RNA sequence: UAAAUAUGCUAGGGGAGCUUUUUUAGGCUGAGAGUGCAUUUUGCAGACCCUUAUGACCUGUGUACGGAUAAUGCCGCUGCAGGGAAGUGUGUAAAGGAUCUA
Numbered sequence: 001u002a003a004a005u006a007u008g009c010u011a012g013g014g015g016a017g018c019u020u021u022u023u024u025a026g027g028c029u030g031a032g033a034g035u036g037c038a039u040u041u042u043g044c045a046g047a048c049c050c051u052u053a054u055g056a057c058c059u060g061u062g063u064a065c066g067g068a069u070a071a072u073g074c075c076g077c078u079g080c081a082g083g084g085a086a087g088u089g090u091g092u093a094a095a096g097g098a099u100c101u102a
Stems, first nucleotide, its partner, number of pairs: 006090005011051004017028004035045004057083004065076003
Rfam assigns this 102-nucleotide sequence from Zhenhengia yiwuensis to the family "TPP riboswitch aptamer (THI element)". The base pairs follow the family's consensus structure, which is taken from published work. It scores 59 bits against the family's covariance model. NCBI's taxonomy places the organism under Bacteria, Bacillati, Clostridia, Lachnospiraceae, Zhenhengia.